The record is a 191-nucleotide sequence from Nomascus leucogenys, which matches "U2 spliceosomal RNA" in Rfam. It scores 153 bits against the family's covariance model. Its family is annotated with U2 snRNP, pre-mRNA branch point binding and mRNA branch site recognition in the Gene Ontology. The family's consensus secondary structure is taken from published work.
RNA sequence: AUCGAUUCUUGGCCUUUUGGCUAAGAUCAAGUGUAGUAUCUGUUCUUAUCAGUUUAAUAUAUGAUACAUCUUCUAUCCAAGGACAAUAUAUUAAAUGGACUUUUGGAGCAGAGAGAUGGAAUAGAAACUUGCUCCAUCCACUCCAUGCAUCCACCUGGUAUUGCAGUACCUCCAGGAAUGGUGCACCCCCU
Numbered sequence: 001a002u003c004g005a006u007u008c009u010u011g012g013c014c015u016u017u018u019g020g021c022u023a024a025g026a027u028c029a030a031g032u033g034u035a036g037u038a039u040c041u042g043u044u045c046u047u048a049u050c051a052g053u054u055u056a057a058u059a060u061a062u063g064a065u066a067c068a069u070c071u072u073c074u075a076u077c078c079a080a081g082g083a084c085a086a087u088a089u090a091u092u093a094a095a096u097g098g099a100c101u102u103u104u105g106g107a108g109c110a111g112a113g114a115g116a117u118g119g120a121a122u123a124g125a126a127a128c129u130u131g132c133u134c135c136a137u138c139c140a141c142u143c144c145a146u147g148c149a150u151c152c153a154c155c156u157g158g159u160a161u162u163g164c165a166g167u168a169c170c171u172c173c174a175g176g177a178a179u180g181g182u183g184c185a186c187c188c189c190c191u
Stems, first nucleotide, its partner, number of pairs: 007026003011022004047066005069083004113143003118138002124135001126133001147184005154176005